RNA sequence: CAGGACGCAGUGGGAGAAGCGGGCUCGCCCCGCUGCCGAAGGCGCAACCGCCCGCAAUCGCUCAGGCCCCCACACCGCUGCGUCGCG
Numbered sequence: 001c002a003g004g005a006c007g008c009a010g011u012g013g014g015a016g017a018a019g020c021g022g023g024c025u026c027g028c029c030c031c032g033c034u035g036c037c038g039a040a041g042g043c044g045c046a047a048c049c050g051c052c053c054g055c056a057a058u059c060g061c062u063c064a065g066g067c068c069c070c071c072a073c074a075c076c077g078c079u080g081c082g083u084c085g086c087g
Base pairs, nucleotide, nucleotide: 006082007081008080009079010078011077012076013075019033020032021031022030035067036066037065038063039062042061043060044059048054
Shown here is an 87-nucleotide RNA sequence from Vulcaniibacterium thermophilum, a member of the family "Glycine riboswitch aptamer". The match comes from Rfam's covariance-model search (47 bits). NCBI's taxonomy places the organism under Bacteria, Pseudomonadati, Pseudomonadota, Gammaproteobacteria, Vulcaniibacterium.